[Rfam]
RNA sequence: CGAACCCGCCGGCUUGGGAGAGCUGAAAGGUUCGGAGAAGACCCGGUCGAGACCGCCUUGGGAGAGGCGCCGCGGACGGGAUUCGUUAAGAGGGGAGAUCGACCGGUGGAGAAUGCGCUUCUCAUCGGAUUGUCGCGGCAGAUGGUGCUGG
Numbered sequence: 001c002g003a004a005c006c007c008g009c010c011g012g013c014u015u016g017g018g019a020g021a022g023c024u025g026a027a028a029g030g031u032u033c034g035g036a037g038a039a040g041a042c043c044c045g046g047u048c049g050a051g052a053c054c055g056c057c058u059u060g061g062g063a064g065a066g067g068c069g070c071c072g073c074g075g076a077c078g079g080g081a082u083u084c085g086u087u088a089a090g091a092g093g094g095g096a097g098a099u100c101g102a103c104c105g106g107u108g109g110a111g112a113a114u115g116c117g118c119u120u121c122u123c124a125u126c127g128g129a130u131u132g133u134c135g136c137g138g139c140a141g142a143u144g145g146u147g148c149u150g151g
Stems, first nucleotide, its partner, number of pairs: 001034004006030002010025006042080004047076002055068005103128005109123005